[Rfam]
RNA sequence: GGACGGUUAGCUCAGUUGGGAGAGCACCUGCCUUACAAGCAGGGGGUCGCAGGUUCGAGCCCUGCACCGUCCA
Numbered sequence: 001g002g003a004c005g006g007u008u009a010g011c012u013c014a015g016u017u018g019g020g021a022g023a024g025c026a027c028c029u030g031c032c033u034u035a036c037a038a039g040c041a042g043g044g045g046g047u048c049g050c051a052g053g054u055u056c057g058a059g060c061c062c063u064g065c066a067c068c069g070u071c072c073a
Base pairs, nucleotide, nucleotide: 001072002071003070004069005068006067007066010025011024012023013022027043028042029041030040031039049065050064051063052062053061
A member of the RNA family "tRNA" from Melghirimyces algeriensis, 73 nucleotides long. By type it is a transfer RNA. Rfam describes the family as follows. Transfer RNA (tRNA) molecules are approximately 80 nucleotides in length. Their secondary structure includes four short double-helical elements and three loops (D, anti-codon, and T loops). A search with the family's covariance model found it, with a score of 72 bits.